[Rfam]
RNA sequence: UAGCAAUGAUGAAAAGUUUUACUACUGACCUUUUUGUAACUAUGAACUUUUCUACACUUGGCCUGAACUCA
Numbered sequence: 001u002a003g004c005a006a007u008g009a010u011g012a013a014a015a016g017u018u019u020u021a022c023u024a025c026u027g028a029c030c031u032u033u034u035u036g037u038a039a040c041u042a043u044g045a046a047c048u049u050u051u052c053u054a055c056a057c058u059u060g061g062c063c064u065g066a067a068c069u070c071a
Stems, first nucleotide, its partner, number of pairs: 002069002013033003016029003
RNA: Small nucleolar RNA U2-30
Organism: Carlito syrichta